[Rfam]
RNA sequence: AAUGGCGUAACAUUAACUCUCACAUGCGCCGACACAUGAUUUCGGGUGCUCCAGGGCCACAGGUCAGGGGGUUGGAUCAUGGGGCGUGUGGAGGCCUAAC
Numbered sequence: 001a002a003u004g005g006c007g008u009a010a011c012a013u014u015a016a017c018u019c020u021c022a023c024a025u026g027c028g029c030c031g032a033c034a035c036a037u038g039a040u041u042u043c044g045g046g047u048g049c050u051c052c053a054g055g056g057c058c059a060c061a062g063g064u065c066a067g068g069g070g071g072u073u074g075g076a077u078c079a080u081g082g083g084g085c086g087u088g089u090g091g092a093g094g095c096c097u098a099a100c
Stems, first nucleotide, its partner, number of pairs: 023090008035081008048072005

Notes:
Shown here is a 100-nucleotide sequence from Saccharospirillum salsuginis, a member of the family "t44 RNA". Lineage of the source: Bacteria > Pseudomonadati > Pseudomonadota > Saccharospirillaceae > Saccharospirillum. Pairs were carried over by alignment from the consensus structure, which was predicted with LocARNA. Rfam classes the family as a small RNA. The literature on the family includes a 2002 paper in Nucleic Acids Res by Tjaden et al., "Transcriptome analysis of Escherichia coli using high-density oligonucleotide probe arrays".